[Rfam]
RNA sequence: ACAGCCGGAUGGGAGUUAUACCGCAGUAGCCCAUUGUCGUAUAUCGGAGAGCGAUGUCAGAUGUACGGACGGUGU
Number, nucleotide and partner (000 for none) at each position: 001a075002c074003a073004g000005c072006c071007g070008g000009a000010u033011g032012g031013g030014a000015g000016u000017u000018a000019u000020a000021c000022c000023g000024c000025a000026g000027u000028a000029g000030c013031c012032c011033a010034u000035u000036g000037u000038c067039g066040u065041a064042u063043a062044u061045c060046g000047g000048a000049g000050a000051g000052c000053g000054a000055u000056g000057u000058c000059a000060g045061a044062u043063g042064u041065a040066c039067g038068g000069a000070c007071g006072g005073u003074g002075u001
This 75-nucleotide RNA sequence belongs to the Rfam family "CyVA-1 RNA".
The family's RNA type in Rfam is small RNA.
The sequence is in the family's curated seed alignment.
Rfam's curators write: Cyanobacteria, Acidobacteria (1 example), Verrucomicrobia (1 example).